[Rfam]
RNA sequence: UUUAAUCAAUUAAAUAGUAUGCGUAUAAUUUAGGGGAUAUGGCCUAAGAGUUUCUACCAAACUACCGUAAACAGUUUGACUACGCAGUUAAAAGCAAAUCUG
Numbered sequence: 001u002u003u004a005a006u007c008a009a010u011u012a013a014a015u016a017g018u019a020u021g022c023g024u025a026u027a028a029u030u031u032a033g034g035g036g037a038u039a040u041g042g043c044c045u046a047a048g049a050g051u052u053u054c055u056a057c058c059a060a061a062c063u064a065c066c067g068u069a070a071a072c073a074g075u076u077u078g079a080c081u082a083c084g085c086a087g088u089u090a091a092a093a094g095c096a097a098a099u100c101u102g
Stems, first nucleotide, its partner, number of pairs: 020086006029049003033045003058078006
Dot-bracket structure: ...................((((((...(((.(((.......))).)))........((((((.........))))))..))))))................
Notes:
This 102-nucleotide sequence from Virgibacillus necropolis belongs to the Rfam family "Purine riboswitch aptamer". The family's consensus secondary structure is taken from published work. About the family: Riboswitches are metabolite binding domains within certain messenger RNAs that serve as precision sensors for their corresponding targets.